[Rfam]
RNA sequence: AUUUUCUGAGGAUGGAACAGGCAGCCAUCGCCCUUGGUGGAGAUGCGGGAGUGCCACCCCGCCUAAAAU
Dot-bracket structure: (((((..(..(((((....[[[[.))))).((....)..)....(((((..]]]]..)))))).)))))